RNA sequence: CGCAUGAUGUGCUCAACUGGAAUUACCAUCUGAACGCGGGAUACCGCAAGUCGAUGAAUUAAUGCUACGUGCAUUACCUCCGCUGUUACUCGUAUCACUGAC
Numbered sequence: 001c002g003c004a005u006g007a008u009g010u011g012c013u014c015a016a017c018u019g020g021a022a023u024u025a026c027c028a029u030c031u032g033a034a035c036g037c038g039g040g041a042u043a044c045c046g047c048a049a050g051u052c053g054a055u056g057a058a059u060u061a062a063u064g065c066u067a068c069g070u071g072c073a074u075u076a077c078c079u080c081c082g083c084u085g086u087u088a089c090u091c092g093u094a095u096c097a098c099u100g101a102c
Stems, first nucleotide, its partner, number of pairs: 003100002005097007015087003018082004027056004032052002036047004060076006
This 102-nucleotide RNA from Trypanosoma brucei belongs to the Rfam family "Small nucleolar RNA TBR12". It is one of the family's seed sequences. Rfam describes the family as follows. TBR12 was one of seventeen snoRNAs identified in Trypanosoma brucei. Together with TBR2, TBR6 and TBR4 it is a part of snoRNA gene cluster that is tandemly repeated. These 4 snoRNA genes are transcribed as a polycistronic RNA transcript. Its family is annotated with nucleolus and RNA processing in the Gene Ontology.